A member of the RNA family "Actinobacteria sRNA Ms_IGR-5" from Jiangella aurantiaca, 233 nucleotides long. The literature on the family includes a 2013 paper in RNA by Li et al., "Identification of small RNAs in Mycobacterium smegmatis using heterologous Hfq". The pairing is the family consensus, mapped onto this sequence. It scores 91 bits against the family's covariance model.
RNA sequence: ACACGGAGAGGAGGUGGUCCAGUAGAUGAAUAGCUAUCGGACUCGUGAGGUGGCUGCUCGCUAGCAGCCCUGCUCGUCGCAGGACUUGGGGGUGACCCCCGCGUUCGCCGGCUUGGUUGCUGGCAACUACCGAGCAGUCACCCGACCCGUGGGCUCCCGGCGCUGGUCCGUCCGGGCCACGUUUCGCGACCGUGUGUCGCGGAGGCGUGGAAGUAGCCCACGGGUCGUUCCAU
Numbered sequence: 001a002c003a004c005g006g007a008g009a010g011g012a013g014g015u016g017g018u019c020c021a022g023u024a025g026a027u028g029a030a031u032a033g034c035u036a037u038c039g040g041a042c043u044c045g046u047g048a049g050g051u052g053g054c055u056g057c058u059c060g061c062u063a064g065c066a067g068c069c070c071u072g073c074u075c076g077u078c079g080c081a082g083g084a085c086u087u088g089g090g091g092g093u094g095a096c097c098c099c100c101g102c103g104u105u106c107g108c109c110g111g112c113u114u115g116g117u118u119g120c121u122g123g124c125a126a127c128u129a130c131c132g133a134g135c136a137g138u139c140a141c142c143c144g145a146c147c148c149g150u151g152g153g154c155u156c157c158c159g160g161c162g163c164u165g166g167u168c169c170g171u172c173c174g175g176g177c178c179a180c181g182u183u184u185c186g187c188g189a190c191c192g193u194g195u196g197u198c199g200c201g202g203a204g205g206c207g208u209g210g211a212a213g214u215a216g217c218c219c220a221c222g223g224g225u226c227g228u229u230c231c232a233u
Base pairs, nucleotide, nucleotide: 013058014057015056016055017054018053060124061123062122063121064120065119067117068116069115072112073111074110143227144226145225146224147223148222149221150220151219152218153217154216155215156176157175158174159173160172